[Rfam]
RNA sequence: UAGUUGUAAGUGAGAAUUGGAUGAAACUAUACAAAAUCUGCUUCACUCUGUUGGAUUAGAAUAGCUUUAAUUUGUAUAGUUUCCUCCAAUAUCUUACUUCCAACUU
Numbered sequence: 001u002a003g004u005u006g007u008a009a010g011u012g013a014g015a016a017u018u019g020g021a022u023g024a025a026a027c028u029a030u031a032c033a034a035a036a037u038c039u040g041c042u043u044c045a046c047u048c049u050g051u052u053g054g055a056u057u058a059g060a061a062u063a064g065c066u067u068u069a070a071u072u073u074g075u076a077u078a079g080u081u082u083c084c085u086c087c088a089a090u091a092u093c094u095u096a097c098u099u100c101c102a103a104c105u106u
Stems, first nucleotide, its partner, number of pairs: 004103003008099001011096004016090006023083008032074004
RNA: MIR2275 microRNA precursor family